The family of this 130-nucleotide RNA sequence from Jhaorihella thermophila is "Alphaproteobacterial ar14". NCBI's taxonomy places the organism under Bacteria, Pseudomonadati, Pseudomonadota, Alphaproteobacteria, Jhaorihella.

[Rfam]
RNA sequence: CGAGAGAUCAGGUUCUUUCUCCUCCUCCCUGAGAACCUGACUUUCGCGGCGGCACUUCUCCUCCUCCCUGGUGCCGCCGCACAAUUACCGGAGAUCGGGCAUUCUCCUCCUCCCUGGCCCGAUCCCGGCA
Numbered sequence: 001c002g003a004g005a006g007a008u009c010a011g012g013u014u015c016u017u018u019c020u021c022c023u024c025c026u027c028c029c030u031g032a033g034a035a036c037c038u039g040a041c042u043u044u045c046g047c048g049g050c051g052g053c054a055c056u057u058c059u060c061c062u063c064c065u066c067c068c069u070g071g072u073g074c075c076g077c078c079g080c081a082c083a084a085u086u087a088c089c090g091g092a093g094a095u096c097g098g099g100c101a102u103u104c105u106c107c108u109c110c111u112c113c114c115u116g117g118c119c120c121g122a123u124c125c126c127g128g129c130a
Stems, first nucleotide, its partner, number of pairs: 008040002011037007047079010093124008

Its family is annotated with biological process involved in symbiotic interaction in the Gene Ontology. The pairing is the family consensus, mapped onto this sequence. For this family Rfam cites "A conserved alpha-proteobacterial small RNA contributes to osmoadaptation and symbiotic efficiency of rhizobia on legume roots" (Robledo et al., Environ Microbiol, 2017). By type it is a small RNA. It scores 59 bits against the family's covariance model.